[Rfam]
RNA: Small nucleolar RNA SNORD103/SNORD85
Nucleotides: 086
Stems, first nucleotide, its partner, number of pairs: 001086006
Number, partner (000 for none) and nucleotide at each position: 001086u002085c003084u004083g005082g006081c007000a008000a009000u010000g011000a012000u013000g014000a015000c016000c017000c018000g019000c020000u021000u022000g023000c024000c025000c026000u027000c028000g029000c030000u031000g032000a033000g034000a035000a036000c037000a038000c039000c040000g041000u042000u043000c044000g045000a046000u047000a048000a049000u050000g051000a052000g053000a054000g055000c056000c057000u058000c059000a060000g061000c062000g063000u064000g065000u066000g067000c068000u069000c070000a071000g072000a073000u074000g075000a076000g077000c078000u079000g080000a081006g082005c083004c084003a085002g086001g